[Rfam]
RNA sequence: AUCGUUAUCACGCUGAAUUUCUAUUCUGGAAAUCGGGGGAACCAAUCAACUGGGGUGAAUCUCGCAGCAGUGCCGUACAGACGGCGGCUUCGAGUAGGGCGACUCUUACGCCCGAAUCCGUCAGCUAACCUCGUAAGCGUAAUAAGAGAGGCAAC
Numbered sequence: 001a002u003c004g005u006u007a008u009c010a011c012g013c014u015g016a017a018u019u020u021c022u023a024u025u026c027u028g029g030a031a032a033u034c035g036g037g038g039g040a041a042c043c044a045a046u047c048a049a050c051u052g053g054g055g056u057g058a059a060u061c062u063c064g065c066a067g068c069a070g071u072g073c074c075g076u077a078c079a080g081a082c083g084g085c086g087g088c089u090u091c092g093a094g095u096a097g098g099g100c101g102a103c104u105c106u107u108a109c110g111c112c113c114g115a116a117u118c119c120g121u122c123a124g125c126u127a128a129c130c131u132c133g134u135a136a137g138c139g140u141a142a143u144a145a146g147a148g149a150g151g152c153a154a155c
Base pairs, nucleotide, nucleotide: 011139012138013137014136018032019031020030034133035132036131037130038129043052044051053119054118055117061094062093063092064091097113098112099111100110
Dot-bracket structure: ..........((((...(((.........))).(((((....((......))(((.....((((..........................))))..((((.........))))...))).........)))))..))))................

This 155-nucleotide sequence from Paenibacillus montanisoli belongs to the Rfam family "c-di-AMP riboswitch aptamer (ydaO/yuaA leader)". The base pairs follow the family's consensus structure. A search with the family's covariance model found it, with a score of 102 bits. Lineage of the source: Bacteria > Bacillati > Caryophanales > Paenibacillaceae > Paenibacillus.